[Rfam]
RNA sequence: CCUGGACAGGAUAUCAUCUAAUACUGUAAGUUUAUUAAAGAGACACUACAGUAUAGAUGAUGUACUAUCCAGG
Numbered sequence: 001c002c003u004g005g006a007c008a009g010g011a012u013a014u015c016a017u018c019u020a021a022u023a024c025u026g027u028a029a030g031u032u033u034a035u036u037a038a039a040g041a042g043a044c045a046c047u048a049c050a051g052u053a054u055a056g057a058u059g060a061u062g063u064a065c066u067a068u069c070c071a072g073g
Base pairs, nucleotide, nucleotide: 005069006068008066009065011063012062013061014060015059016058017057018056021054022053023052024051025050026049027048028047030044031043032042
This 73-nucleotide RNA from Takifugu rubripes belongs to the Rfam family "mir-144 microRNA precursor family". For this family Rfam cites "Identification of microRNAs from different tissues of chicken embryo and adult chicken" (Xu et al., FEBS Lett, 2006). Taxonomically the source falls in Takifugu (Eukaryota, Opisthokonta, Deuterostomia, Vertebrata).